[Rfam]
A member of the RNA family "Small nucleolar RNA R44/J54/Z268 family" from Lupinus albus, 86 nucleotides long. The family's consensus secondary structure was predicted with PFOLD.

RNA sequence: UUUGCAAGUGAUGAUAAAUUAGACAGGGACAUCAGCACUCUAUCUAGAGAAUGGUGAUUUGUCGAUGGGAAUCUCUCUGAUGCAAA
Numbered sequence: 001u002u003u004g005c006a007a008g009u010g011a012u013g014a015u016a017a018a019u020u021a022g023a024c025a026g027g028g029a030c031a032u033c034a035g036c037a038c039u040c041u042a043u044c045u046a047g048a049g050a051a052u053g054g055u056g057a058u059u060u061g062u063c064g065a066u067g068g069g070a071a072u073c074u075c076u077c078u079g080a081u082g083c084a085a086a
Base pairs, nucleotide, nucleotide: 002085003084004083005082006081